Shown here is an 87-nucleotide sequence from Gossypium mustelinum, a member of the family "MIR7486 microRNA precursor family". The base pairs follow the family's consensus structure, which was predicted with RNAalifold. Its family is annotated with miRNA-mediated post-transcriptional gene silencing and RISC complex in the Gene Ontology. The organism belongs to Gossypium, within Eukaryota. The family has 9 seed sequences and 10,132 matches in Rfam 15.1.

RNA sequence: CACGUCAGCGCGAUUUGCUGACGUGGCAGCAAACCGCGCCCUCUAGAACGCGAUUUGCUGCCACGUCAACAAAUCGCGCUGACGUGG
Numbered sequence: 001c002a003c004g005u006c007a008g009c010g011c012g013a014u015u016u017g018c019u020g021a022c023g024u025g026g027c028a029g030c031a032a033a034c035c036g037c038g039c040c041c042u043c044u045a046g047a048a049c050g051c052g053a054u055u056u057g058c059u060g061c062c063a064c065g066u067c068a069a070c071a072a073a074u075c076g077c078g079c080u081g082a083c084g085u086g087g
Stems, first nucleotide, its partner, number of pairs: 001086017019068003023064011035052004041046001